[Rfam]
RNA sequence: UUUGGCACCUCAAAUCGGGGUCUUAUUUUGGCAACAAGAUAAUGCUAUUUGGCUGUAUGCUGGAACAUCCGGGGUAUCUAAAAUCAUAUGCUCAUAAUAAAUUUUAAAGAGCAUAUAAAAGUAUUUUAGUGCGGACAAUCAGCAGGGAAGUUGAUUCUAUCGAGUUUAACCCCUCAACGACUACACGCCGAACAUCUUAUUAUAAUAAUGAGAUGAUGAUAUAGUCUGAUCUUUUAGGCGACUAAAAG
Number, nucleotide and partner (000 for none) at each position: 001u019002u018003u017004g016005g000006c000007a000008c000009c000010u000011c000012a000013a000014a000015u000016c004017g003018g002019g001020g000021u000022c000023u000024u000025a000026u000027u038028u037029u036030g000031g000032c000033a000034a000035c000036a029037a028038g027039a000040u000041a000042a000043u000044g000045c000046u000047a000048u192049u191050u190051g189052g000053c187054u000055g000056u000057a000058u144059g143060c142061u141062g140063g139064a000065a000066c000067a000068u135069c134070c133071g132072g000073g000074g000075u000076a000077u000078c000079u000080a000081a000082a000083a000084u000085c000086a000087u000088a000089u000090g000091c000092u000093c000094a000095u000096a000097a000098u000099a000100a000101a000102u000103u000104u000105u000106a000107a000108a000109g000110a000111g000112c000113a000114u000115a000116u000117a000118a000119a000120a000121g000122u000123a000124u000125u000126u000127u000128a000129g000130u000131g000132c071133g070134g069135a068136c000137a000138a000139u063140c062141a061142g060143c059144a058145g173146g172147g000148a000149a000150g000151u000152u000153g000154a000155u000156u000157c000158u000159a000160u000161c000162g000163a000164g000165u000166u000167u000168a000169a000170c000171c000172c146173c145174u000175c000176a000177a227178c000179g226180a225181c224182u223183a222184c000185a000186c000187g053188c000189c051190g050191a049192a048193c000194a000195u213196c212197u211198u210199a209200u208201u207202a206203u000204a000205a000206u202207a201208a200209u199210g198211a197212g196213a195214u000215g000216a000217u000218g000219a000220u000221a000222u183223a182224g181225u180226c179227u177228g000229a000230u000231c000232u000233u246234u245235u244236a243237g242238g000239c000240g000241a000242c237243u236244a235245a234246a233247a000248g000
This 248-nucleotide RNA from Auxenochlorella protothecoides belongs to the Rfam family "Group I catalytic intron". A search with the family's covariance model found it, with a score of 82 bits. NCBI's taxonomy places the organism under Eukaryota, Chlorophyta, Trebouxiophyceae, Chlorellaceae, Auxenochlorella.